[Rfam]
RNA sequence: CCGGUGGCUUUCGCCACCGGCUAAAUUCUGCCGUCCCUCCGGGACG
Dot-bracket structure: ((((((((....))))))))............(((((...))))).
Numbered sequence: 001c002c003g004g005u006g007g008c009u010u011u012c013g014c015c016a017c018c019g020g021c022u023a024a025a026u027u028c029u030g031c032c033g034u035c036c037c038u039c040c041g042g043g044a045c046g
Stems, first nucleotide, its partner, number of pairs: 001020008033045005